A member of the RNA family "MIR1520 microRNA precursor family" from Glycine max, 105 nucleotides long. Pairs were carried over by alignment from the consensus structure, which was predicted with RNAalifold. Lineage of the source: Eukaryota > Mesangiospermae > Papilionoideae > Phaseoleae > Glycine subgen. Soja. The family is grouped with related families in Rfam's "MIR1520 microRNA precursor clan". Its family is annotated with miRNA-mediated post-transcriptional gene silencing and RISC complex in the Gene Ontology. A search with the family's covariance model found it, with a score of 74 bits.
RNA sequence: UUGUUAUUGGAUAUGUAUUAUGUUUUGAUUGGAUGUCAAUGAAAGAUGAAAUACAUUGUUAUUUUCAUUUAUCAAUCUAAACAUGACAUAGGACAAUCAUCAUCC
Numbered sequence: 001u002u003g004u005u006a007u008u009g010g011a012u013a014u015g016u017a018u019u020a021u022g023u024u025u026u027g028a029u030u031g032g033a034u035g036u037c038a039a040u041g042a043a044a045g046a047u048g049a050a051a052u053a054c055a056u057u058g059u060u061a062u063u064u065u066c067a068u069u070u071a072u073c074a075a076u077c078u079a080a081a082c083a084u085g086a087c088a089u090a091g092g093a094c095a096a097u098c099a100u101c102a103u104c105c
Base pairs, nucleotide, nucleotide: 014093015089016088019085020084021083023081024080025079028076029075030074